[Rfam]
RNA sequence: CCCGCCGUGUUCGAUUCUUCUCUUUGAGUAUUUGACAGACUGUGUGUGACACACUCGUCUCGCUGGGUGUCAGUUUGUCAAAUACCCCAAGAGAGGAGUCACUAAUC
Numbered sequence: 001c002c003c004g005c006c007g008u009g010u011u012c013g014a015u016u017c018u019u020c021u022c023u024u025u026g027a028g029u030a031u032u033u034g035a036c037a038g039a040c041u042g043u044g045u046g047u048g049a050c051a052c053a054c055u056c057g058u059c060u061c062g063c064u065g066g067g068u069g070u071c072a073g074u075u076u077g078u079c080a081a082a083u084a085c086c087c088c089a090a091g092a093g094a095g096g097a098g099u100c101a102c103u104a105a106u107c
Stems, first nucleotide, its partner, number of pairs: 020093004026087001028085014048071004054065001

Background
A member of the RNA family "mir-223 microRNA precursor family" from Bagarius yarrelli, 107 nucleotides long. The family's consensus secondary structure was predicted with RNAalifold. Gene Ontology terms of the family: RISC complex and miRNA-mediated post-transcriptional gene silencing. A search with the family's covariance model found it, with a score of 80 bits. For this family Rfam cites "Vertebrate microRNA genes" (Lim et al., Science, 2003). Taxonomically the source falls in Bagarius (Eukaryota, Chordata, Euteleostomi, Characiphysae).